[Rfam]
RNA: Small nucleolar RNA R21
RNA sequence: AAUCCCAGUGAAGAAUCAUAAGAAAAAUUAGAAGUAGUGGACAGAACUUUUAUUUGAUGAGCAAUGGAUUUUGAGGGAUG
Numbered sequence: 001a002a003u004c005c006c007a008g009u010g011a012a013g014a015a016u017c018a019u020a021a022g023a024a025a026a027a028u029u030a031g032a033a034g035u036a037g038u039g040g041a042c043a044g045a046a047c048u049u050u051u052a053u054u055u056g057a058u059g060a061g062c063a064a065u066g067g068a069u070u071u072u073g074a075g076g077g078a079u080g
Stems, first nucleotide, its partner, number of pairs: 002079005